[Rfam]
The family of this 98-nucleotide RNA from Rhinopithecus bieti is "Y RNA". About the family: Y RNAs are components of the Ro ribonucleoprotein particle (Ro RNP), in association with Ro60 and La proteins.
RNA sequence: GGUUGGUCUAAGUGCAGCAGUGUUUACAACUAAUUGAUCACAACCAGUUGCAGAUUUGUUUCAUAUCCACUCCCACUGCUUCACUUGACUAGCCUAAA
Numbered sequence: 001g002g003u004u005g006g007u008c009u010a011a012g013u014g015c016a017g018c019a020g021u022g023u024u025u026a027c028a029a030c031u032a033a034u035u036g037a038u039c040a041c042a043a044c045c046a047g048u049u050g051c052a053g054a055u056u057u058g059u060u061u062c063a064u065a066u067c068c069a070c071u072c073c074c075a076c077u078g079c080u081u082c083a084c085u086u087g088a089c090u091a092g093c094c095u096a097a098a
Stems, first nucleotide, its partner, number of pairs: 001094008010086002014082001016077002020073001022072001028060003032056004

A search with the family's covariance model found it, with a score of 54 bits.